[Rfam]
A member of the RNA family "mir-1684 microRNA precursor family" from Acer saccharum, 90 nucleotides long. The base pairs follow the family's consensus structure, which was predicted with RNAalifold. It scores 60 bits against the family's covariance model.
RNA sequence: UUGUAGGUGAGAAGCUCUCUCUCUCUAUAUAUACAUAUAUAUAUAUAUAUAUGUAUGUAUAUAUAGAGAGAGAGAGCUUCUCACCUACAA
Number, nucleotide and partner (000 for none) at each position: 001u000002u089003g088004u000005a000006g085007g084008u000009g082010a081011g080012a079013a078014g077015c076016u075017c074018u073019c072020u071021c070022u000023c068024u067025c066026u065027a064028u063029a062030u061031a060032u059033a000034c057035a056036u000037a054038u053039a052040u051041a000042u000043a000044u000045a000046u000047a000048u000049a000050u000051a040052u039053g038054u037055a000056u035057g034058u000059a032060u031061a030062u029063a028064u027065a026066g025067a024068g023069a000070g021071a020072g019073a018074g017075a016076g015077c014078u013079u012080c011081u010082c009083a000084c007085c006086u000087a000088c003089a002090a000